Annotation: NiCo (Nickel/Cobalt) riboswitch aptamer: an 89-nucleotide RNA from Clostridium vincentii. A reference for the family is Furukawa et al. (2015), "Bacterial riboswitches cooperatively bind Ni(2+) or Co(2+) ions and control expression of heavy metal transporters", Mol Cell. Taxonomically the source falls in Clostridium (Bacteria, Bacillati, Bacillota, Clostridiaceae). Its Rfam clan is "NiCo_riboswitches".
RNA sequence: ACAGUACAAACUGAUCAGGCCAAAAUCGUAUUGAUUUUUGGAGCCGGGCCUUUAGGCAACAGGAUUAUUAUAAUACCUGUGGGACAGUA
Numbered sequence: 001a002c003a004g005u006a007c008a009a010a011c012u013g014a015u016c017a018g019g020c021c022a023a024a025a026u027c028g029u030a031u032u033g034a035u036u037u038u039u040g041g042a043g044c045c046g047g048g049c050c051u052u053u054a055g056g057c058a059a060c061a062g063g064a065u066u067a068u069u070a071u072a073a074u075a076c077c078u079g080u081g082g083g084a085c086a087g088u089a
Stems, first nucleotide, its partner, number of pairs: 010088004016083001018045003022039004048057003059080005